The record is a 113-nucleotide RNA sequence from Breoghania sp. L-A4, which matches "EcpR1" in Rfam. The match comes from Rfam's covariance-model search (96 bits). On this family, see Reinkensmeier et al., Genes (Basel) 2011: "Conservation and Occurrence of Trans-Encoded sRNAs in the Rhizobiales". Rfam describes the family as follows. Perviously named SmelC291, SmrC10, or Sra33.
RNA sequence: CUGCCCCAUGGAACUCUCAGGUCCGCCGCAUCUCCUGGGUCCGUGGGGUUAGGCCGGCAGGGAAGCAGGUUGGAGUGGCCUCCUCGUAACACCUGCUUCCCGCCGGCCGCCUU
Numbered sequence: 001c002u003g004c005c006c007c008a009u010g011g012a013a014c015u016c017u018c019a020g021g022u023c024c025g026c027c028g029c030a031u032c033u034c035c036u037g038g039g040u041c042c043g044u045g046g047g048g049u050u051a052g053g054c055c056g057g058c059a060g061g062g063a064a065g066c067a068g069g070u071u072g073g074a075g076u077g078g079c080c081u082c083c084u085c086g087u088a089a090c091a092c093c094u095g096c097u098u099c100c101c102g103c104c105g106g107c108c109g110c111c112u113u
Stems, first nucleotide, its partner, number of pairs: 003049008016039006052108007060100003